[Rfam]
RNA sequence: AGGUGACUGGGGCUCCAAAUCCUUCCAUAAAAUGUCCAACAGGUCAUCAUAAAUUAAAAUUUGAUUUUCUUCACUCAGAGAAUAUUAGGGUGAUGGGACUAUCUGUUUAUUCUCUGAUAUUUGUGGAAUCAAACACUU
Numbered sequence: 001a002g003g004u005g006a007c008u009g010g011g012g013c014u015c016c017a018a019a020u021c022c023u024u025c026c027a028u029a030a031a032a033u034g035u036c037c038a039a040c041a042g043g044u045c046a047u048c049a050u051a052a053a054u055u056a057a058a059a060u061u062u063g064a065u066u067u068u069c070u071u072c073a074c075u076c077a078g079a080g081a082a083u084a085u086u087a088g089g090g091u092g093a094u095g096g097g098a099c100u101a102u103c104u105g106u107u108u109a110u111u112c113u114c115u116g117a118u119a120u121u122u123g124u125g126g127a128a129u130c131a132a133a134c135a136c137u138u
Stems, first nucleotide, its partner, number of pairs: 002048007063130006075117010088104005
Dot-bracket structure: .(((((((.................................)))))))..............((((((......((((((((((...(((((.......)))))...)))))))))).......))))))........
RNA: Small nucleolar RNA SNORA79